RNA sequence: AGCACACAUGAUGAGCAAAAAGGGACUUAAUACUGAAAAUUGUUGAUGUCCAUUUUUUGUAUAUCUGAUGUGC
Numbered sequence: 001a002g003c004a005c006a007c008a009u010g011a012u013g014a015g016c017a018a019a020a021a022g023g024g025a026c027u028u029a030a031u032a033c034u035g036a037a038a039a040u041u042g043u044u045g046a047u048g049u050c051c052a053u054u055u056u057u058u059g060u061a062u063a064u065c066u067g068a069u070g071u072g073c
Base pairs, nucleotide, nucleotide: 002073003072004071005070006069
Record summary
The family of this 73-nucleotide RNA from Albula goreensis is "Small nucleolar RNA SNORD82". The family has 27 seed sequences and 649 matches in Rfam 15.1. It is annotated as a C/D-box small nucleolar RNA. snoRNA U82 or Z25 is found in both humans and mice.